Background:
The record is a 172-nucleotide sequence from Metallibacterium scheffleri, which matches "Group II catalytic intron D1-D4-3" in Rfam. Lineage of the source: Bacteria > Pseudomonadati > Gammaproteobacteria > Lysobacterales > Metallibacterium. From the family's description: Group II introns are found in rRNA, tRNA and mRNA of organelles in fungi, plants and protists, and also in mRNA in bacteria. Rfam links the family to the GO term Group II intron splicing. For this family Rfam cites "The ins and outs of group II introns" (Bonen and Vogel, Trends Genet, 2001).
[Rfam]
RNA sequence: AAUCGGGUGACUGGUCGUCUGAAGGAAGCCCGAGGCAAAGCGCUGGCCUGACGAACAGGAAGCGGAUACGAGGCGACACGUUGGGGUGAGGCAGCAAAAGGGGUCAAAGCCCGGUACUUGCACAGACGACGUGGCGUAUAUCCGACAGGCAUAAGCGGGAAGGCAGGUGCGU
Numbered sequence: 001a002a003u004c005g006g007g008u009g010a011c012u013g014g015u016c017g018u019c020u021g022a023a024g025g026a027a028g029c030c031c032g033a034g035g036c037a038a039a040g041c042g043c044u045g046g047c048c049u050g051a052c053g054a055a056c057a058g059g060a061a062g063c064g065g066a067u068a069c070g071a072g073g074c075g076a077c078a079c080g081u082u083g084g085g086g087u088g089a090g091g092c093a094g095c096a097a098a099a100g101g102g103g104u105c106a107a108a109g110c111c112c113g114g115u116a117c118u119u120g121c122a123c124a125g126a127c128g129a130c131g132u133g134g135c136g137u138a139u140a141u142c143c144g145a146c147a148g149g150c151a152u153a154a155g156c157g158g159g160a161a162g163g164c165a166g167g168u169g170c171g172u
Base pairs, nucleotide, nucleotide: 002015003014004013005012006011028172029171031169032168035164036163041157042156043155044154046150047149048148049147050146063144064143065142066141067140073137074136075135077133078132079131080130081129082128083127084112085111086110087109090105091104092103